[Rfam]
RNA sequence: UUAAAAAGCGGCCUCAGAACUGGAAGCAUCCCCGCACGCUUGCUAUAGCUCAAAGCACCCUGCCGAACAUGGCAUAACAACACGCAACCUGCCGUUGCCAUAACGCAUGCAAACAGGGAGAGACACUGCAAUGCAGAC
Numbered sequence: 001u002u003a004a005a006a007a008g009c010g011g012c013c014u015c016a017g018a019a020c021u022g023g024a025a026g027c028a029u030c031c032c033c034g035c036a037c038g039c040u041u042g043c044u045a046u047a048g049c050u051c052a053a054a055g056c057a058c059c060c061u062g063c064c065g066a067a068c069a070u071g072g073c074a075u076a077a078c079a080a081c082a083c084g085c086a087a088c089c090u091g092c093c094g095u096u097g098c099c100a101u102a103a104c105g106c107a108u109g110c111a112a113a114c115a116g117g118g119a120g121a122g123a124c125a126c127u128g129c130a131a132u133g134c135a136g137a138c
Stems, first nucleotide, its partner, number of pairs: 013118003022032002038110002041107003061074005084098005
RNA: opuB ncRNA motif
Organism: Kosakonia cowanii